[Rfam]
RNA: UnaL2 LINE 3' element
RNA sequence: AAUGAGAUUAAAUGUAAGUCGCUCUGGAUCAGGGCGUCUGCUAAAUGCCAUAAA
Numbered sequence: 001a002a003u004g005a006g007a008u009u010a011a012a013u014g015u016a017a018g019u020c021g022c023u024c025u026g027g028a029u030c031a032g033g034g035c036g037u038c039u040g041c042u043a044a045a046u047g048c049c050a051u052a053a054a
Base pairs, nucleotide, nucleotide: 013043014041015040016039020036021035022034023033024032025031